[Rfam]
RNA sequence: GUAAAAGGAACGUCGACUAAGAGCCGCCAUGUCCUGUGGCGAACAUCGACGUCAGCGCGUCCUGCGCA
Numbered sequence: 001g002u003a004a005a006a007g008g009a010a011c012g013u014c015g016a017c018u019a020a021g022a023g024c025c026g027c028c029a030u031g032u033c034c035u036g037u038g039g040c041g042a043a044c045a046u047c048g049a050c051g052u053c054a055g056c057g058c059g060u061c062c063u064g065c066g067c068a
Base pairs, nucleotide, nucleotide: 011051012050013049014048015047016046026040027039028038029037030036055067056066057065058064
Bacillaceae-1 RNA: a 68-nucleotide RNA from Peribacillus cavernae. The family's consensus secondary structure is taken from published work. NCBI's taxonomy places the organism under Bacteria, Bacillota, Bacilli, Bacillaceae, Peribacillus.